[Rfam]
Shown here is a 114-nucleotide RNA from Onychostoma macrolepis, a member of the family "Potassium channel RNA editing signal". Rfam describes the family as follows. This family represents a group of sequences related to the human potassium channel Kv1.1 hairpin element which directs the efficient modification of an adenosine to inosine by an adenosine deaminase acting on RNA (ADAR). The ADAR modification causes an isoleucine/valine recoding event which lies in the ion-conducting pore of the potassium channel. Rfam links the family to the GO term adenosine to inosine editing. The organism belongs to Onychostoma, within Eukaryota. By type it is a cis-regulatory element. The literature on the family includes a 2004 paper in Nat Struct Mol Biol by Bhalla et al., "Control of human potassium channel inactivation by editing of a small mRNA hairpin".

RNA sequence: GUAGGUUAUGGGGAUAUGUACCCUAAGACGUGGCUGGGCAUGAUGGUCGGUGCGUUAUGUGCAUUAGCAGGUGUGCUUACCAUCGCCAUGCCAGUGCCCAUUAUCGUUAACAAU
Numbered sequence: 001g002u003a004g005g006u007u008a009u010g011g012g013g014a015u016a017u018g019u020a021c022c023c024u025a026a027g028a029c030g031u032g033g034c035u036g037g038g039c040a041u042g043a044u045g046g047u048c049g050g051u052g053c054g055u056u057a058u059g060u061g062c063a064u065u066a067g068c069a070g071g072u073g074u075g076c077u078u079a080c081c082a083u084c085g086c087c088a089u090g091c092c093a094g095u096g097c098c099c100a101u102u103a104u105c106g107u108u109a110a111c112a113a114u
Base pairs, nucleotide, nucleotide: 001114002113004111008107009106010105011104013102014101015100018097019096020095021094037077038076039075040074050062051061